[Rfam]
RNA sequence: AAGUCCUUUAAGACAGUCCAGUGAGGCUGAGAAGGAGUCGGAUUAGAAUCAUUACAUGCUCAGUUUAUGUGUGUGUGAAUUCUGCAAAUCUACCCUCUCGCCGCACAGUGAGAGGGUUUUUUGUUU
Dot-bracket structure: ...((((((....(((((......))))).)))))).........((((...(((((((.........)))))))...)))).....(...((((((((((......))))))))))...).....
RNA: PyrR binding site
Organism: Bacillus mesophilum